[Rfam]
Rfam assigns this 392-nucleotide sequence from Sinimarinibacterium sp. NLF-5-8 to the family "Bacterial RNase P class A".
RNA sequence: GGAGUCGGCCAGACAACCGCUGCCGCCUUUGUUGCGGGAGAGGAAAGUCCGGGCUCCGCAGGGCAGAGUGCCAGGUAACGCCUGGGCGCCGUGAGGCGACGGAAAGUGCAACAGAGAGCAGUCCGCCGAUGGCCGCGCUUGCGCGGAUCAGGCAAGGGUGAAACGGUGCGGUAAGAGCGCACCGCGAGUCUGGCAACAGACCGGCACGGCAAACCCCACUCGGAGCAAGACCAAAUAGGGAAGGUGCGUUGGCGCAAGCCGGCGCGACACGCGGCCCGCGUGCCUUCCGGGUAGGUUGCUGGAGCGUUGCGGCGACGCAGCGCCUAGAGGAAUGGUUGUCGCAAGUGUGCAAACACUUGGCACAGAACCCGGCUUACAGGCCGACUCCCCCA
Numbered sequence: 001g002g003a004g005u006c007g008g009c010c011a012g013a014c015a016a017c018c019g020c021u022g023c024c025g026c027c028u029u030u031g032u033u034g035c036g037g038g039a040g041a042g043g044a045a046a047g048u049c050c051g052g053g054c055u056c057c058g059c060a061g062g063g064c065a066g067a068g069u070g071c072c073a074g075g076u077a078a079c080g081c082c083u084g085g086g087c088g089c090c091g092u093g094a095g096g097c098g099a100c101g102g103a104a105a106g107u108g109c110a111a112c113a114g115a116g117a118g119c120a121g122u123c124c125g126c127c128g129a130u131g132g133c134c135g136c137g138c139u140u141g142c143g144c145g146g147a148u149c150a151g152g153c154a155a156g157g158g159u160g161a162a163a164c165g166g167u168g169c170g171g172u173a174a175g176a177g178c179g180c181a182c183c184g185c186g187a188g189u190c191u192g193g194c195a196a197c198a199g200a201c202c203g204g205c206a207c208g209g210c211a212a213a214c215c216c217c218a219c220u221c222g223g224a225g226c227a228a229g230a231c232c233a234a235a236u237a238g239g240g241a242a243g244g245u246g247c248g249u250u251g252g253c254g255c256a257a258g259c260c261g262g263c264g265c266g267a268c269a270c271g272c273g274g275c276c277c278g279c280g281u282g283c284c285u286u287c288c289g290g291g292u293a294g295g296u297u298g299c300u301g302g303a304g305c306g307u308u309g310c311g312g313c314g315a316c317g318c319a320g321c322g323c324c325u326a327g328a329g330g331a332a333u334g335g336u337u338g339u340c341g342c343a344a345g346u347g348u349g350c351a352a353a354c355a356c357u358u359g360g361c362a363c364a365g366a367a368c369c370c371g372g373c374u375u376a377c378a379g380g381c382c383g384a385c386u387c388c389c390c391c392a
Stems, first nucleotide, its partner, number of pairs: 001388010012340007020040002023037004045375003049372005054225004061277004066221005071085005086100001087098004101216002106214002108210002123157002125153003133146005165183006184205001185203002188201005229297004239288006268282005304323008
Lineage of the source: Bacteria > Pseudomonadota > Gammaproteobacteria > Nevskiaceae > Sinimarinibacterium.